This 84-nucleotide sequence from Oleomonas cavernae belongs to the Rfam family "chrB-a RNA". Rfam classes the family as a cis-regulatory element.
RNA sequence: GCCACGGGGUCCCUCGCGAUCACCCCGUCAGGCGGCAGCCCAAGGAUCGCGUCCACGCGCUUAGUGCGGAGAUGGACGCUCAUG
Dot-bracket structure: ....((((((...........)))))).....................((((((...................)))))).....
Numbered sequence: 001g002c003c004a005c006g007g008g009g010u011c012c013c014u015c016g017c018g019a020u021c022a023c024c025c026c027g028u029c030a031g032g033c034g035g036c037a038g039c040c041c042a043a044g045g046a047u048c049g050c051g052u053c054c055a056c057g058c059g060c061u062u063a064g065u066g067c068g069g070a071g072a073u074g075g076a077c078g079c080u081c082a083u084g
Stems, first nucleotide, its partner, number of pairs: 005027006049079006
Pairs were carried over by alignment from the consensus structure, which is taken from published work.